[Rfam]
RNA sequence: AUCGCGGCACACGACUGGCGCAGGUGGGCAACCACCAGGGAGUGAGUCGAGGCCGCAUCGAACGCCUGGGUGCCCUCA
Number, nucleotide and partner (000 for none) at each position: 001a000002u000003c051004g000005c049006g048007g047008c046009a000010c044011a043012c042013g000014a000015c039016u038017g066018g065019c064020g063021c000022a000023g000024g035025u034026g033027g032028g000029c000030a000031a000032c027033c026034a025035c024036c000037a000038g016039g015040g000041a000042g012043u011044g010045a000046g008047u007048c006049g005050a000051g003052g000053c000054c000055g073056c072057a071058u070059c069060g000061a000062a000063c020064g019065c018066c017067u000068g000069g059070g058071u057072g056073c055074c000075c000076u000077c000078a000

Rfam assigns this 78-nucleotide sequence from Nocardioides marmorisolisilvae to the family "ZMP/ZTP riboswitch aptamer (pfl RNA motif)". NCBI's taxonomy places the organism under Bacteria, Actinomycetota, Actinomycetes, Nocardioidaceae, Nocardioides.